Shown here is a 110-nucleotide sequence from Sandaracinobacteroides saxicola, a member of the family "Glycine riboswitch aptamer". The base pairs follow the family's consensus structure. Rfam links the family to the GO term glycine biosynthetic process.
[Rfam]
RNA sequence: CACCGACACUCUGGAAAGCGCCGGCGAAGGCUGGCCACCGAAGGGGUAAAUGCAGCGACUUCGCAAGGCGUUGCACCAAAGCUCUCAGGUUCCGUGACAGAGGGGGCGCC
Numbered sequence: 001c002a003c004c005g006a007c008a009c010u011c012u013g014g015a016a017a018g019c020g021c022c023g024g025c026g027a028a029g030g031c032u033g034g035c036c037a038c039c040g041a042a043g044g045g046g047u048a049a050a051u052g053c054a055g056c057g058a059c060u061u062c063g064c065a066a067g068g069c070g071u072u073g074c075a076c077c078a079a080a081g082c083u084c085u086c087a088g089g090u091u092c093c094g095u096g097a098c099a100g101a102g103g104g105g106g107c108g109c110c
Stems, first nucleotide, its partner, number of pairs: 007104001009102005020035004037090003040086002044084003